[Rfam]
RNA sequence: ACAGGACCAAUGCCGCGAGGCUCAUCACCCACAGGUCGUCGCCCACGACCUUCCCAAUGAGCGGGCUACGGUCUGAGUGUUCAAGUCCCUCUUGAUUGGCUCUAGCUGAGUCCCGUCGACAACGACGGCGCGACGUUUCAGAAACCCAGCCGUGGACUUCUCCAAGAUAUCUUGGGCCAGCGAUGGACCUGUAGACUCCUCUGGUCGGCCUGUGAUUCGUAAACCACGCGUUGCCUGGUGGACGAGGGUGUGGCCCCUUAAAAGCACGAAAGUGCUACUAUCCCUCCCCCCCUAGCGGCUUUGGAACACGUUGCAGGGAUGGGGCAGUCAACCGCCUGCAUUACUCCUCUCGUGGUGCUUCCGUCUGUGCUCCUACUAAUCAGGAGCGCACACCACUUGCUUCCUGAUCUUGCAUCAGUCGCUCGAGAAGUGUCGACGGUUGCACAGAGAGUGCGGCAUUGUAGGUGGUGACUGUCCUUCAGCGCAGUUCGCGGGAUGCAUUUGGCUUCGUGCCCGUGCAUAGCCCGAUUCAGACCAUUUUGUGCUGU
Numbered sequence: 001a002c003a004g005g006a007c008c009a010a011u012g013c014c015g016c017g018a019g020g021c022u023c024a025u026c027a028c029c030c031a032c033a034g035g036u037c038g039u040c041g042c043c044c045a046c047g048a049c050c051u052u053c054c055c056a057a058u059g060a061g062c063g064g065g066c067u068a069c070g071g072u073c074u075g076a077g078u079g080u081u082c083a084a085g086u087c088c089c090u091c092u093u094g095a096u097u098g099g100c101u102c103u104a105g106c107u108g109a110g111u112c113c114c115g116u117c118g119a120c121a122a123c124g125a126c127g128g129c130g131c132g133a134c135g136u137u138u139c140a141g142a143a144a145c146c147c148a149g150c151c152g153u154g155g156a157c158u159u160c161u162c163c164a165a166g167a168u169a170u171c172u173u174g175g176g177c178c179a180g181c182g183a184u185g186g187a188c189c190u191g192u193a194g195a196c197u198c199c200u201c202u203g204g205u206c207g208g209c210c211u212g213u214g215a216u217u218c219g220u221a222a223a224c225c226a227c228g229c230g231u232u233g234c235c236u237g238g239u240g241g242a243c244g245a246g247g248g249u250g251u252g253g254c255c256c257c258u259u260a261a262a263a264g265c266a267c268g269a270a271a272g273u274g275c276u277a278c279u280a281u282c283c284c285u286c287c288c289c290c291c292c293u294a295g296c297g298g299c300u301u302u303g304g305a306a307c308a309c310g311u312u313g314c315a316g317g318g319a320u321g322g323g324g325c326a327g328u329c330a331a332c333c334g335c336c337u338g339c340a341u342u343a344c345u346c347c348u349c350u351c352g353u354g355g356u357g358c359u360u361c362c363g364u365c366u367g368u369g370c371u372c373c374u375a376c377u378a379a380u381c382a383g384g385a386g387c388g389c390a391c392a393c394c395a396c397u398u399g400c401u402u403c404c405u406g407a408u409c410u411u412g413c414a415u416c417a418g419u420c421g422c423u424c425g426a427g428a429a430g431u432g433u434c435g436a437c438g439g440u441u442g443c444a445c446a447g448a449g450a451g452u453g454c455g456g457c458a459u460u461g462u463a464g465g466u467g468g469u470g471a472c473u474g475u476c477c478u479u480c481a482g483c484g485c486a487g488u489u490c491g492c493g494g495g496a497u498g499c500a501u502u503u504g505g506c507u508u509c510g511u512g513c514c515c516g517u518g519c520a521u522a523g524c525c526c527g528a529u530u531c532a533g534a535c536c537a538u539u540u541u542g543u544g545c546u547g548u
Base pairs, nucleotide, nucleotide: 001548002547003546008542009541013494014493015492016491017490018489020062021061022060023059024058034050035049036048037047038046039045073533074532075531076530077529079320080319081318082317098112099111100110101109102108113128114127115126116125117124118123130314131313132312133311134310135309136308149300151298496521497520498519499518500517501516
RNA: Nuclear RNase P